[Rfam]
Source information:
The family of this 61-nucleotide RNA sequence from Winslowiella toletana is "L31-Gammaproteobacteria ribosomal protein leader". Rfam's curators put it in the seed alignment. Rfam classes the family as a cis-regulatory leader. Taxonomically the source falls in Winslowiella toletana (Bacteria, Pseudomonadota, Enterobacterales, Erwiniaceae). Its Rfam clan is "Ribosomal Protein L31 Leader clan". For this family Rfam cites "Discovery of 20 novel ribosomal leader candidates in bacteria and archaea" (Eckert and Weinberg, BMC Microbiol, 2020).
RNA sequence: CGUGUGGUGCCGGUGCAGGAAUUUUCCUGGCACGGGAGAGCGACGCGGCCUUAACUGAGGU
Numbered sequence: 001c002g003u004g005u006g007g008u009g010c011c012g013g014u015g016c017a018g019g020a021a022u023u024u025u026c027c028u029g030g031c032a033c034g035g036g037a038g039a040g041c042g043a044c045g046c047g048g049c050c051u052u053a054a055c056u057g058a059g060g061u
Stems, first nucleotide, its partner, number of pairs: 001047005007041002010036002013033003
Dot-bracket structure: (((((.((.((.(((...............))).))...)).)))))..............